Plastid-rps12 3UTR RNA: a 99-nucleotide RNA from Musa balbisiana. Rfam 15.1 lists 1,710 matches to the family in 1,426 species. About the family: Plastid rpl20 is a non-coding RNA (ncRNA) recognised in plastids. It was found in the three prime untranslated region (3UTR) of rps12 gene, its 3UTR location sugest a role in transcript maduration. A search with the family's covariance model found it, with a score of 79 bits.

[Rfam]
RNA sequence: GGUUUCCUUGGUGCAAAUCCAAUCACCUGAGAGUUGAGAUGACAAGCAAUUCCCCAUUGGUAGCAAAUAUUAUCCAUUAAUACGCGGAGGAAAUAGUAU
Numbered sequence: 001g002g003u004u005u006c007c008u009u010g011g012u013g014c015a016a017a018u019c020c021a022a023u024c025a026c027c028u029g030a031g032a033g034u035u036g037a038g039a040u041g042a043c044a045a046g047c048a049a050u051u052c053c054c055c056a057u058u059g060g061u062a063g064c065a066a067a068u069a070u071u072a073u074c075c076a077u078u079a080a081u082a083c084g085c086g087g088a089g090g091a092a093a094u095a096g097u098a099u
Base pairs, nucleotide, nucleotide: 008022009021010020011019052089054087055086056077057076059074060073061072062071063070